[Rfam]
RNA: Ribosomal S15 leader
Organism: Halarcobacter anaerophilus
RNA sequence: CGCGUCCACUUAAGUUUAAGUGAGAUUAAAUAUACCUAUUAGGAGGUCUAUUAUGGCUUUAGAUCAGGAAGUAAAAGCAAAUAUUAUUGCGAAAUACAGAAGAGAUGAA
Numbered sequence: 001c002g003c004g005u006c007c008a009c010u011u012a013a014g015u016u017u018a019a020g021u022g023a024g025a026u027u028a029a030a031u032a033u034a035c036c037u038a039u040u041a042g043g044a045g046g047u048c049u050a051u052u053a054u055g056g057c058u059u060u061a062g063a064u065c066a067g068g069a070a071g072u073a074a075a076a077g078c079a080a081a082u083a084u085u086a087u088u089g090c091g092a093a094a095u096a097c098a099g100a101a102g103a104g105a106u107g108a109a
Base pairs, nucleotide, nucleotide: 007022008021009020010019011018012017039063040062042060043059044058045057